This 128-nucleotide sequence from Castor canadensis belongs to the Rfam family "Small nucleolar RNA SNORA63". The family's consensus secondary structure was predicted with PFOLD. Rfam classes the family as an H/ACA-box small nucleolar RNA. About the family: E3 belongs to the H/ACA class of snoRNAs and is involved in the processing of eukaryotic pre-rRNA and has regions of complementarity to 18S rRNA. E3 is encoded in introns in the gene for protein synthesis initiation factor 4AII. For this family Rfam cites "Three small nucleolar RNAs that are involved in ribosomal RNA precursor processing" (Mishra and Eliceiri, Proc Natl Acad Sci U S A, 1997). Gene Ontology terms of the family: nucleolus and RNA processing.
RNA sequence: AAUCAGGAUUCGGACUACAAUAUAGCUGUUAAGUGCUAUGUUGUUGUUCCCCCUGCUCAAAAUAAGGUUGUUUUUUAACCAUACGUGCCAUUUCCCUGUAGCAGCCAGGGACUCUUGGUGUCAUACAU
Number, nucleotide and partner (000 for none) at each position: 001a000002a000003u000004c055005a054006g053007g052008a000009u000010u000011c000012g000013g000014a000015c000016u000017a044018c043019a042020a041021u040022a039023u038024a037025g036026c035027u000028g000029u000030u000031a000032a000033g000034u000035g026036c025037u024038a023039u022040g021041u020042u019043g018044u017045u000046g000047u000048u000049c000050c000051c000052c007053c006054u005055g004056c000057u000058c000059a000060a000061a000062a000063u000064a000065a000066g000067g000068u000069u000070g000071u000072u000073u000074u000075u000076u000077a000078a000079c000080c000081a000082u000083a000084c109085g000086u107087g106088c000089c104090a000091u000092u000093u000094c000095c000096c000097u000098g000099u000100a000101g000102c000103a000104g089105c000106c087107a086108g000109g084110g000111a000112c000113u000114c000115u000116u000117g000118g000119u000120g000121u000122c000123a000124u000125a000126c000127a000128u000